A member of the RNA family "Small nucleolar RNA psi28S-3316" from Scaptodrosophila lebanonensis, 130 nucleotides long. The match comes from Rfam's covariance-model search (83 bits). Lineage of the source: Eukaryota > Ecdysozoa > Allotriocarida > Pterygota > Scaptodrosophila. Rfam's curators write: psi28S-3316 is a member of the H/ACA class of snoRNA. This family is responsible for guiding the modification of uridine 3316 in Drosophila 28S rRNA to pseudouridine. The family's consensus secondary structure was predicted with RNAfold. Rfam 15.1 lists 85 matches to the family in 19 species.
RNA sequence: CGCACCUAAAAGCGUUUUCUUGUACGCUAACAUAUGCGCUUGAAAAUCGUAGUUGUGUGCCAAAGCACAGUCCAGUCGCAAGUGACUUUAGAAGGUUACUACUAUAGUCCCAAAAAGUCUGGCUACAAUA
Numbered sequence: 001c002g003c004a005c006c007u008a009a010a011a012g013c014g015u016u017u018u019c020u021u022g023u024a025c026g027c028u029a030a031c032a033u034a035u036g037c038g039c040u041u042g043a044a045a046a047u048c049g050u051a052g053u054u055g056u057g058u059g060c061c062a063a064a065g066c067a068c069a070g071u072c073c074a075g076u077c078g079c080a081a082g083u084g085a086c087u088u089u090a091g092a093a094g095g096u097u098a099c100u101a102c103u104a105u106a107g108u109c110c111c112a113a114a115a116a117g118u119c120u121g122g123c124u125a126c127a128a129u130a
Base pairs, nucleotide, nucleotide: 002060003059004058005057006055012050013049014048015046016045017044018043019042022037023036072122073121074120075119083112084111085108086107087106090103091102093100